[Rfam]
RNA sequence: AGGUUCCGACCAGUUCAAUUAUCGGGAUUACAUGCUGAACCUAUAUGGUUCCUUCAUCCUGUGGAAAGUCCCCGGAGUCAGGGCGGAAAGCGUCGUAUUGUGGUGGAUUCAGGCCGGGUUCGGUGCCAUAGGGAGGGAAAUUCUUGACCCGUUUGGUGUCGACCCGUAGCGUUGCUCAGAGCAAAGAUAAUGUUGUUAGAGAUUAAAAAAUCUCAACAAAAUGGGGCUUACUCGGUUGGAACU
Numbered sequence: 001a002g003g004u005u006c007c008g009a010c011c012a013g014u015u016c017a018a019u020u021a022u023c024g025g026g027a028u029u030a031c032a033u034g035c036u037g038a039a040c041c042u043a044u045a046u047g048g049u050u051c052c053u054u055c056a057u058c059c060u061g062u063g064g065a066a067a068g069u070c071c072c073c074g075g076a077g078u079c080a081g082g083g084c085g086g087a088a089a090g091c092g093u094c095g096u097a098u099u100g101u102g103g104u105g106g107a108u109u110c111a112g113g114c115c116g117g118g119u120u121c122g123g124u125g126c127c128a129u130a131g132g133g134a135g136g137g138a139a140a141u142u143c144u145u146g147a148c149c150c151g152u153u154u155g156g157u158g159u160c161g162a163c164c165c166g167u168a169g170c171g172u173u174g175c176u177c178a179g180a181g182c183a184a185a186g187a188u189a190a191u192g193u194u195g196u197u198a199g200a201g202a203u204u205a206a207a208a209a210a211u212c213u214c215a216a217c218a219a220a221a222u223g224g225g226g227c228u229u230a231c232u233c234g235g236u237u238g239g240a241a242c243u
Stems, first nucleotide, its partner, number of pairs: 002243010016195004023061006037051005066229003070226004082094004095108002098105001110169001112167001116165005125157004129151001131149002134144004199214006
Background
This 243-nucleotide sequence from Papilio xuthus belongs to the Rfam family "RNase MRP". Clan: RNaseP clan. The family's RNA type in Rfam is ribozyme. It scores 81 bits against the family's covariance model. Pairs were carried over by alignment from the consensus structure, which is taken from published work. From the family's description: RNase MRP is an enzymatically active ribonucleoprotein with two distinct roles in eukaryotes. In mitochondria it plays a direct role in the initiation of mitochondrial DNA replication. In the nucleus it is involved in precursor rRNA processing, where it cleaves the internal transcribed spacer 1 between 18S and 5.8S rRNAs. Despite distinct functions, RNase MRP has been shown to be evolutionarily related to RNase P. Like eukaryotic RNase P, RNase MRP is not catalytically active without associated protein subunits.